[Rfam]
Nucleotides: 061
Stems, first nucleotide, its partner, number of pairs: 001061007009053005017045009027035001
Number, partner (000 for none) and nucleotide at each position: 001061g002060c003059c004058g005057g006056u007055c008000c009053u010052c011051g012050g013049u014000a015000g016000u017045g018044g019043c020042c021041c022040u023039c024038g025037g026000g027035g028000a029000a030000a031000a032000g033000a034000a035027c036000g037025c038024c039023g040022g041021g042020g043019g044018c045017u046000u047000c048000g049013a050012u051011c052010g053009a054000a055007g056006a057005c058004c059003g060002g061001c
This 61-nucleotide RNA sequence from Streptomyces sp. ISL-12 belongs to the Rfam family "Actino-pnp RNA". The organism belongs to Streptomyces, within Bacteria. It scores 68 bits against the family's covariance model. The family's consensus secondary structure is taken from published work. By type it is a cis-regulatory element.